[Rfam]
RNA sequence: GUACCUUCGCUAUAGUAGAUUUCAAUAUCUCUGACUAAAUUGAGUAUACCCCAUAGACUACACAAAAUAAACGAAGGUCAAUUUUGACUCCCUUUAGUAGAAGCCCAUGCGAGAAUCGUGUGGGCUCUUUGU
Numbered sequence: 001g002u003a004c005c006u007u008c009g010c011u012a013u014a015g016u017a018g019a020u021u022u023c024a025a026u027a028u029c030u031c032u033g034a035c036u037a038a039a040u041u042g043a044g045u046a047u048a049c050c051c052c053a054u055a056g057a058c059u060a061c062a063c064a065a066a067a068u069a070a071a072c073g074a075a076g077g078u079c080a081a082u083u084u085u086g087a088c089u090c091c092c093u094u095u096a097g098u099a100g101a102a103g104c105c106c107a108u109g110c111g112a113g114a115a116u117c118g119u120g121u122g123g124g125c126u127c128u129u130u131g132u
Base pairs, nucleotide, nucleotide: 003078004077005076006075007074008073009072022043023042024041025040026038030037044061045060093100094099103125104124105123106122107121108120109119110118111117
The family of this 132-nucleotide sequence from Staphylococcus haemolyticus is "RNA Staph. aureus H". NCBI's taxonomy places the organism under Bacteria, Bacilli, Caryophanales, Staphylococcus, Staphylococcus haemolyticus. For this family Rfam cites "A search for small noncoding RNAs in Staphylococcus aureus reveals a conserved sequence motif for regulation" (Geissmann et al., Nucleic Acids Res, 2009). The base pairs follow the family's consensus structure, which is taken from published work.